[Rfam]
RNA: Bacterial large subunit ribosomal RNA, nucleotides 2647 to 2908
RNA sequence: CGAAAUUUGAGGGGUUCAUUUUCUAGUACGAGAGGACCGAAAAUGACGAGCCGCUGGUGUUCCGGUUAUUGCGUCAGCAGUACCGCCGGGUAGCUAUGCUCGGAAGAGAUAAGCGCUGAAAGCAUCUAAGCGCCAAGCUCAUCCCAAGAUAAGAUUUCGUUGGAGAUUUAUCUCCUGAAGAGUCCUGGAAGACUACCAGGUUGAUAGGCCAGAUGUGUAAGUGGGGUAACUCAUUGAGCAAACUGGUACUAAUGACUCAAAU
Numbered sequence: 001c002g003a004a005a006u007u008u009g010a011g012g013g014g015u016u017c018a019u020u021u022u023c024u025a026g027u028a029c030g031a032g033a034g035g036a037c038c039g040a041a042a043a044u045g046a047c048g049a050g051c052c053g054c055u056g057g058u059g060u061u062c063c064g065g066u067u068a069u070u071g072c073g074u075c076a077g078c079a080g081u082a083c084c085g086c087c088g089g090g091u092a093g094c095u096a097u098g099c100u101c102g103g104a105a106g107a108g109a110u111a112a113g114c115g116c117u118g119a120a121a122g123c124a125u126c127u128a129a130g131c132g133c134c135a136a137g138c139u140c141a142u143c144c145c146a147a148g149a150u151a152a153g154a155u156u157u158c159g160u161u162g163g164a165g166a167u168u169u170a171u172c173u174c175c176u177g178a179a180g181a182g183u184c185c186u187g188g189a190a191g192a193c194u195a196c197c198a199g200g201u202u203g204a205u206a207g208g209c210c211a212g213a214u215g216u217g218u219a220a221g222u223g224g225g226g227u228a229a230c231u232c233a234u235u236g237a238g239c240a241a242a243c244u245g246g247u248a249c250u251a252a253u254g255a256c257u258c259a260a261a262u
Base pairs, nucleotide, nucleotide: 001159002158003157004156005155006154007153008152011145012144013143014142017045018044019043020042021041022040023039047102048101049100050099051098055096056095057094062089063088064087065086066085067082068081069080070079071078072077106140107139108138113133114132115131116130117129162175163174164173180258181257182256183255184200185199186198187197188196205251206250207249208247209246210245211244212243214240215239221234222233223232224231225230